[Rfam]
The record is a 212-nucleotide RNA sequence from Gordonia effusa, which matches "c-di-AMP riboswitch aptamer (ydaO/yuaA leader)" in Rfam. The organism belongs to Gordonia effusa, within Bacteria. It scores 56 bits against the family's covariance model.
RNA sequence: CCAGCUGGGUCGCACAACUGCAAUUCAGGAACAAGGACGGGGGACCCAUUCUCCCGUGAGACCCGGUUCUGAUGUAUCACACGGAUAACACCGCGUGUUACGACAGUUCCUUGGGGUGUAGCUCCGCGAACGACUUCCAGUCGCUAGCGGGGCCGGGCAACCUCUCGCUCGAACCCGACAGCUGACUUCGUAGGCGCGUGGAGAGAGGAAUA
Numbered sequence: 001c002c003a004g005c006u007g008g009g010u011c012g013c014a015c016a017a018c019u020g021c022a023a024u025u026c027a028g029g030a031a032c033a034a035g036g037a038c039g040g041g042g043g044a045c046c047c048a049u050u051c052u053c054c055c056g057u058g059a060g061a062c063c064c065g066g067u068u069c070u071g072a073u074g075u076a077u078c079a080c081a082c083g084g085a086u087a088a089c090a091c092c093g094c095g096u097g098u099u100a101c102g103a104c105a106g107u108u109c110c111u112u113g114g115g116g117u118g119u120a121g122c123u124c125c126g127c128g129a130a131c132g133a134c135u136u137c138c139a140g141u142c143g144c145u146a147g148c149g150g151g152g153c154c155g156g157g158c159a160a161c162c163u164c165u166c167g168c169u170c171g172a173a174c175c176c177g178a179c180a181g182c183u184g185a186c187u188u189c190g191u192a193g194g195c196g197c198g199u200g201g202a203g204a205g206a207g208g209a210a211u212a
Stems, first nucleotide, its partner, number of pairs: 001036002037191006047113002114176003122152006155170004